[Rfam]
RNA sequence: GUCGCCUAGGUGUUGGCCAAUGCGAGGUUAGCAAAGAGUGUUUGUCACUCGUGUAUGUUCCUCGCGGGAAGGUCUGAGGCAUGCGGCAUUGUUGGACUCUCGUGAUGAGAGGCUCUACUAACAGGAGUGCAGACUAACAGAGAAGGUUCUGAUGUGUGCACCGCAAACUCGGUGACUGGGGAGUUGUUCCUCACGAGGGGGAGGUGCAUUGUCAGAUUGAGAGUGUCUGUGCUGAGCGCGUAUAGUGAGAUUGGCUGGUGUUGUGUGACUCAAUUCAGACUAUAACCUAGGCGGC
Numbered sequence: 001g002u003c004g005c006c007u008a009g010g011u012g013u014u015g016g017c018c019a020a021u022g023c024g025a026g027g028u029u030a031g032c033a034a035a036g037a038g039u040g041u042u043u044g045u046c047a048c049u050c051g052u053g054u055a056u057g058u059u060c061c062u063c064g065c066g067g068g069a070a071g072g073u074c075u076g077a078g079g080c081a082u083g084c085g086g087c088a089u090u091g092u093u094g095g096a097c098u099c100u101c102g103u104g105a106u107g108a109g110a111g112g113c114u115c116u117a118c119u120a121a122c123a124g125g126a127g128u129g130c131a132g133a134c135u136a137a138c139a140g141a142g143a144a145g146g147u148u149c150u151g152a153u154g155u156g157u158g159c160a161c162c163g164c165a166a167a168c169u170c171g172g173u174g175a176c177u178g179g180g181g182a183g184u185u186g187u188u189c190c191u192c193a194c195g196a197g198g199g200g201g202a203g204g205u206g207c208a209u210u211g212u213c214a215g216a217u218u219g220a221g222a223g224u225g226u227c228u229g230u231g232c233u234g235a236g237c238g239c240g241u242a243u244a245g246u247g248a249g250a251u252u253g254g255c256u257g258g259u260g261u262u263g264u265g266u267g268a269c270u271c272a273a274u275u276c277a278g279a280c281u282a283u284a285a286c287c288u289a290g291g292c293g294g295c
Base pairs, nucleotide, nucleotide: 001295002294003293004292008288009287010286013258014257015256016255017254018253019252022065023064024063025062026061036050037049038048039047040046074278075277076276077275078274084234085233086232087231097111098110099109100108101107112128113127114126115125116124129230130229131228132227133226134225148216149215150214
RNA: Nuclear RNase P
Organism: Schistosoma japonicum